About this RNA: Rfam assigns this 90-nucleotide sequence from Miscanthus lutarioriparius to the family "MIR2275 microRNA precursor family". It scores 68 bits against the family's covariance model. Lineage of the source: Eukaryota > Viridiplantae > Liliopsida > commelinids > Miscanthus. The base pairs follow the family's consensus structure, which was predicted with RNAalifold. Gene Ontology terms of the family: miRNA-mediated post-transcriptional gene silencing and RISC complex.
RNA sequence: CCAUUUGAAGUGAGGAUUAGAGGUAACUGAACCAUCCAUUGGAAGACAUGGAACAGGGUUCAGUUUCCUCUAAUAUCUCAUCUUGAAUGG
Numbered sequence: 001c002c003a004u005u006u007g008a009a010g011u012g013a014g015g016a017u018u019a020g021a022g023g024u025a026a027c028u029g030a031a032c033c034a035u036c037c038a039u040u041g042g043a044a045g046a047c048a049u050g051g052a053a054c055a056g057g058g059u060u061c062a063g064u065u066u067c068c069u070c071u072a073a074u075a076u077c078u079c080a081u082c083u084u085g086a087a088u089g090g
Stems, first nucleotide, its partner, number of pairs: 004087005011080004016074006023067001025065006032058002